[Rfam]
RNA: Ribosomal protein L10 leader
Organism: Oscillospiraceae bacterium HV4-5-C5C
RNA sequence: UAAUAUUUAUACUCGUGACCAAAGACAGCAGGUGUCCUCCGGGACCUAACAGUUCCUGCCCAGGUGCGGAUUUGAUGAGUGAGAUACUCUAUGCAGAUUUGUAUCCUUCCUGUCUUUGGACAAGAAGGAUAUUUUUUAUAAGGA
Number, nucleotide and partner (000 for none) at each position: 001u000002a000003a000004u000005a000006u000007u000008u000009a000010u000011a000012c000013u000014c000015g000016u000017g000018a000019c000020c000021a000022a000023a000024g000025a000026c000027a000028g059029c058030a057031g056032g055033u000034g045035u044036c043037c000038u000039c000040c000041g000042g000043g036044a035045c034046c000047u000048a000049a000050c000051a000052g000053u000054u000055c032056c031057u030058g029059c028060c000061c000062a000063g000064g000065u000066g000067c000068g000069g000070a000071u000072u000073u000074g000075a000076u000077g000078a000079g000080u000081g000082a000083g000084a000085u000086a000087c000088u000089c000090u000091a000092u000093g000094c000095a000096g000097a000098u000099u000100u000101g000102u000103a000104u129105c128106c127107u126108u125109c124110c000111u122112g121113u120114c000115u000116u000117u000118g000119g000120a113121c112122a111123a000124g109125a108126a107127g106128g105129a104130u000131a000132u000133u000134u000135u000136u000137u000138a000139u000140a000141a000142g000143g000144a000